[Rfam]
RNA: Small nucleolar RNA snR191
RNA sequence: CCCCAGGGGUUUUGUCAGGACUGCUUCCGCGUUGCUCUGCAAUGCAUUCACUCAUGGAAGCGGCCCGUUACAUCGCUGGGAUAGCAAUAUCCACCUCCCAACUUCUCCGGUCUGGUCAUCAGAUUGGGGAUUGACAACCUCCGUUAUGGAGGGAGUCCCGGGAUACCGGACGUGUUUCUGAUGAGUUGAAGGCCAUCUCUGCCAUAAAUGGGGUAGCGAAUGGUGGUCUUCUUAGUGAUGAUUCACACAUUU
Numbered sequence: 001c002c003c004c005a006g007g008g009g010u011u012u013u014g015u016c017a018g019g020a021c022u023g024c025u026u027c028c029g030c031g032u033u034g035c036u037c038u039g040c041a042a043u044g045c046a047u048u049c050a051c052u053c054a055u056g057g058a059a060g061c062g063g064c065c066c067g068u069u070a071c072a073u074c075g076c077u078g079g080g081a082u083a084g085c086a087a088u089a090u091c092c093a094c095c096u097c098c099c100a101a102c103u104u105c106u107c108c109g110g111u112c113u114g115g116u117c118a119u120c121a122g123a124u125u126g127g128g129g130a131u132u133g134a135c136a137a138c139c140u141c142c143g144u145u146a147u148g149g150a151g152g153g154a155g156u157c158c159c160g161g162g163a164u165a166c167c168g169g170a171c172g173u174g175u176u177u178c179u180g181a182u183g184a185g186u187u188g189a190a191g192g193c194c195a196u197c198u199c200u201g202c203c204a205u206a207a208a209u210g211g212g213g214u215a216g217c218g219a220a221u222g223g224u225g226g227u228c229u230u231c232u233u234a235g236u237g238a239u240g241a242u243u244c245a246c247a248c249a250u251u252u
Stems, first nucleotide, its partner, number of pairs: 003079004018066002021063008030044005090170003096129006104118001107115002133157001138152006172246003177241002188231004194225004200215004205210001